[Rfam]
Shown here is a 140-nucleotide RNA from Lichenibacterium minor, a member of the family "Group II catalytic intron D1-D4-4". Rfam links the family to the GO term Group II intron splicing.
RNA sequence: CAACGGAGGGAGGUUCCGUCCAGAGAGUUGUCGGUUGAUCUGGUAGCUGGCAGGCGGUUUGGUCGGGCAACCGGCUGGAUCGAAGCCCUGCGACAAAGGCCGCCUCGGGCGGUUGAGCGAUCCAGCGGGCCGUAACGCGA
Numbered sequence: 001c002a003a004c005g006g007a008g009g010g011a012g013g014u015u016c017c018g019u020c021c022a023g024a025g026a027g028u029u030g031u032c033g034g035u036u037g038a039u040c041u042g043g044u045a046g047c048u049g050g051c052a053g054g055c056g057g058u059u060u061g062g063u064c065g066g067g068c069a070a071c072c073g074g075c076u077g078g079a080u081c082g083a084a085g086c087c088c089u090g091c092g093a094c095a096a097a098g099g100c101c102g103c104c105u106c107g108g109g110c111g112g113u114u115g116a117g118c119g120a121u122c123c124a125g126c127g128g129g130c131c132g133u134a135a136c137g138c139g140a
Stems, first nucleotide, its partner, number of pairs: 020043005050091005055082006064073001066071001098114006117133003
Taxonomically the source falls in Lichenibacterium (Bacteria, Pseudomonadati, Pseudomonadota, Alphaproteobacteria). About the family: Group II introns are found in rRNA, tRNA and mRNA of organelles in fungi, plants and protists, and also in mRNA in bacteria. A reference for the family is Bonen and Vogel (2001), "The ins and outs of group II introns", Trends Genet. The pairing is the family consensus, mapped onto this sequence.